[Rfam]
RNA sequence: UUCAGAAAAAGGCAAAUCUUUCGAAAGAAAGCGACGCAAAGCUACAGAUCUAAGGUGCAACGGCACUAUGAUGGCUGAGCUCCCUGG
Numbered sequence: 001u002u003c004a005g006a007a008a009a010a011g012g013c014a015a016a017u018c019u020u021u022c023g024a025a026a027g028a029a030a031g032c033g034a035c036g037c038a039a040a041g042c043u044a045c046a047g048a049u050c051u052a053a054g055g056u057g058c059a060a061c062g063g064c065a066c067u068a069u070g071a072u073g074g075c076u077g078a079g080c081u082c083c084c085u086g087g
Stems, first nucleotide, its partner, number of pairs: 012037002018031005040081004045077003048072003055066004